[Rfam]
Shown here is a 132-nucleotide RNA from Ensifer sp. M14, a member of the family "TPP riboswitch aptamer (THI element)". The base pairs follow the family's consensus structure, which is taken from published work. A search with the family's covariance model found it, with a score of 68 bits. Taxonomically the source falls in Ensifer (Bacteria, Pseudomonadati, Alphaproteobacteria, Rhizobiaceae). Gene Ontology term of the family: thiamine pyrophosphate binding.

RNA sequence: UUCAUUCACCAGGGGGGUCCUGACAAGGGGCUGAGAUAUUGCUGGGCGGAUCGGCUUUUUCGACCGCAGCGCAAUGACCCGUUGAACCUGAUCCAGUUCAUGCUGGCGUAGGGACGGUGGGAACGACGGCGC
Numbered sequence: 001u002u003c004a005u006u007c008a009c010c011a012g013g014g015g016g017g018u019c020c021u022g023a024c025a026a027g028g029g030g031c032u033g034a035g036a037u038a039u040u041g042c043u044g045g046g047c048g049g050a051u052c053g054g055c056u057u058u059u060u061c062g063a064c065c066g067c068a069g070c071g072c073a074a075u076g077a078c079c080c081g082u083u084g085a086a087c088c089u090g091a092u093c094c095a096g097u098u099c100a101u102g103c104u105g106g107c108g109u110a111g112g113g114a115c116g117g118u119g120g121g122a123a124c125g126a127c128g129g130c131g132c
Base pairs, nucleotide, nucleotide: 006120007119008118009117010116012080013079014078017031018030019029020028021027038075039074040073041072042071087112088111089110090109093106094105095104096103